The record is a 110-nucleotide RNA sequence from Nocardioides dokdonensis, which matches "TPP riboswitch aptamer (THI element)" in Rfam.
RNA sequence: CUCGUCCACCACGGGAGCUCGCGGCAGCGGGCUGAGAGGGAGCUGUUCCGCUCCGACCGUUGAACCUGAUCCGGGUAAAGCCGGCGAAGGAAGCGAGGAGCGAAGCGUGC
Numbered sequence: 001c002u003c004g005u006c007c008a009c010c011a012c013g014g015g016a017g018c019u020c021g022c023g024g025c026a027g028c029g030g031g032c033u034g035a036g037a038g039g040g041a042g043c044u045g046u047u048c049c050g051c052u053c054c055g056a057c058c059g060u061u062g063a064a065c066c067u068g069a070u071c072c073g074g075g076u077a078a079a080g081c082c083g084g085c086g087a088a089g090g091a092a093g094c095g096a097g098g099a100g101c102g103a104a105g106c107g108u109g110c
Stems, first nucleotide, its partner, number of pairs: 006098002009095001011060004017032005039054005065090003071084004
From the family's description: Vitamin B(1) in its active form thiamin pyrophosphate (TPP) is an essential coenzyme that is synthesised by coupling of pyrimidine and thiazole moieties in bacteria. Pairs were carried over by alignment from the consensus structure, which is taken from published work. A search with the family's covariance model found it, with a score of 58 bits. The source organism's lineage runs through Bacteria, Actinomycetota, Actinomycetes, Propionibacteriales and Nocardioides dokdonensis.